[Rfam]
RNA sequence: AAAAAAAGGAGCAAUAGCUUCCCUCUUGUUUUAUCAAGAGGGCGUUAUUGCUCCUUUUU
Number, nucleotide and partner (000 for none) at each position: 001a000002a000003a000004a000005a057006a056007a055008g054009g053010a052011g051012c050013a049014a048015u047016a046017g000018c000019u000020u000021c042022c000023c040024u039025c038026u037027u036028g035029u000030u000031u000032u000033a000034u000035c028036a027037a026038g025039a024040g023041g000042g021043c000044g000045u000046u016047a015048u014049u013050g012051c011052u010053c009054c008055u007056u006057u005058u000059u000

This 59-nucleotide RNA from Lactuca sativa belongs to the Rfam family "Plastid-psbA-4 3UTR RNA". The base pairs follow the family's consensus structure, which was predicted with LocARNA. Rfam's curators put it in the seed alignment. On this family, see Richter et al., Plant Commun 2023: "Retrograde signaling in plants: A critical review focusing on the GUN pathway and beyond". Its Rfam clan is "Plastid-psbA 3UTR RNA clan". The organism belongs to Lactuca, within Eukaryota.